[Rfam]
RNA sequence: UGACUUUGGUCAAAGUCAAACUACUCUAAGUUUAACUAAUUUUAUAGAAAAAAGUAGUAAUAUUUUUAAUCCAAGAUAAAUAUAUUAUGAAAAUUUAUUUAAUUACAGAUUUAAUGAAACUAUGCUGGUGUUGUAAAUAUUACUACUUUUUUCUACAAAAUCAUUCAAAGUUAGAGUAGUUUGACUUCGACCAAAGUCAA
Numbered sequence: 001u002g003a004c005u006u007u008g009g010u011c012a013a014a015g016u017c018a019a020a021c022u023a024c025u026c027u028a029a030g031u032u033u034a035a036c037u038a039a040u041u042u043u044a045u046a047g048a049a050a051a052a053a054g055u056a057g058u059a060a061u062a063u064u065u066u067u068a069a070u071c072c073a074a075g076a077u078a079a080a081u082a083u084a085u086u087a088u089g090a091a092a093a094u095u096u097a098u099u100u101a102a103u104u105a106c107a108g109a110u111u112u113a114a115u116g117a118a119a120c121u122a123u124g125c126u127g128g129u130g131u132u133g134u135a136a137a138u139a140u141u142a143c144u145a146c147u148u149u150u151u152u153c154u155a156c157a158a159a160a161u162c163a164u165u166c167a168a169a170g171u172u173a174g175a176g177u178a179g180u181u182u183g184a185c186u187u188c189g190a191c192c193a194a195a196g197u198c199a200a
Stems, first nucleotide, its partner, number of pairs: 005195005011189001013187014031169003035165001045155008055145003059141007067133002072128001074126002